[Rfam]
RNA sequence: GGUUAUAUGUAGGGGGACCAGUGUAGCUGGUUGAGAUUGUAUCCUUUGAUUGAUACUGACCCUUAGAACCUGAUCUGGUUUAGACCAGCGUAGGGAACAUCUGAUACGACUAU
Numbered sequence: 001g002g003u004u005a006u007a008u009g010u011a012g013g014g015g016g017a018c019c020a021g022u023g024u025a026g027c028u029g030g031u032u033g034a035g036a037u038u039g040u041a042u043c044c045u046u047u048g049a050u051u052g053a054u055a056c057u058g059a060c061c062c063u064u065a066g067a068a069c070c071u072g073a074u075c076u077g078g079u080u081u082a083g084a085c086c087a088g089c090g091u092a093g094g095g096a097a098c099a100u101c102u103g104a105u106a107c108g109a110c111u112a113u
Stems, first nucleotide, its partner, number of pairs: 007100004011063004016057001017031005039056004069094004075088004